[Rfam]
RNA sequence: AGAGAAGCGUGUGCCUUUUCUGCACACUUGUAUAGACGCGCACACACGAGAGUAGAGGCGCGUGUGCCUUU
Numbered sequence: 001a002g003a004g005a006a007g008c009g010u011g012u013g014c015c016u017u018u019u020c021u022g023c024a025c026a027c028u029u030g031u032a033u034a035g036a037c038g039c040g041c042a043c044a045c046a047c048g049a050g051a052g053u054a055g056a057g058g059c060g061c062g063u064g065u066g067c068c069u070u071u
Base pairs, nucleotide, nucleotide: 002070003069004068007065008064009063010062011061012060013059014058015057016056017055018054020052021051025048029044030041031040
Dot-bracket structure: .(((..((((((((((((.((...(...(((........))..)...)..)).))))))))))))..))).
Shown here is a 71-nucleotide RNA sequence from Bos taurus, a member of the family "mir-2450 microRNA precursor family".
It scores 62 bits against the family's covariance model.
The family has 4 seed sequences and 76 matches in Rfam 15.1.